This 114-nucleotide RNA from Bagarius yarrelli belongs to the Rfam family "Potassium channel RNA editing signal". By type it is a cis-regulatory element.

RNA sequence: CUGGGGUAUGGGGAUAUGUACCCUCAGACAUGGUCAGGAAUGCUGGUAGGGGCCCUGUGUGCAUUAGCGGGUGUGCUAACAAUAGCAAUGCCUGUUCCUGUCAUUGUCAAUAAC
Numbered sequence: 001c002u003g004g005g006g007u008a009u010g011g012g013g014a015u016a017u018g019u020a021c022c023c024u025c026a027g028a029c030a031u032g033g034u035c036a037g038g039a040a041u042g043c044u045g046g047u048a049g050g051g052g053c054c055c056u057g058u059g060u061g062c063a064u065u066a067g068c069g070g071g072u073g074u075g076c077u078a079a080c081a082a083u084a085g086c087a088a089u090g091c092c093u094g095u096u097c098c099u100g101u102c103a104u105u106g107u108c109a110a111u112a113a114c
Stems, first nucleotide, its partner, number of pairs: 002113001004111001008107004013102004018097001020095002037077002040074001050062001
NCBI's taxonomy places the organism under Eukaryota, Osteoglossocephalai, Clupeocephala, Characiphysae, Bagarius. The base pairs follow the family's consensus structure, which is taken from published work.